Annotation
A member of the RNA family "mir-1902 microRNA precursor family" from Suricata suricatta, 78 nucleotides long. Rfam links the family to the GO terms miRNA-mediated post-transcriptional gene silencing and RISC complex. The family has 2 seed sequences and 1,188 matches in Rfam 15.1. Taxonomically the source falls in Suricata (Eukaryota, Chordata, Mammalia, Theria).
RNA sequence: GUUUACUUUGGGAAUGUUUGCUGUAUAAUUAGAUUUAAUGAAUGUUUAGAGGUGCAGUAGGCAUGACUUUGAGUAGAU
Numbered sequence: 001g002u003u004u005a006c007u008u009u010g011g012g013a014a015u016g017u018u019u020g021c022u023g024u025a026u027a028a029u030u031a032g033a034u035u036u037a038a039u040g041a042a043u044g045u046u047u048a049g050a051g052g053u054g055c056a057g058u059a060g061g062c063a064u065g066a067c068u069u070u071g072a073g074u075a076g077a078u
Stems, first nucleotide, its partner, number of pairs: 001078008010069003014064013030048005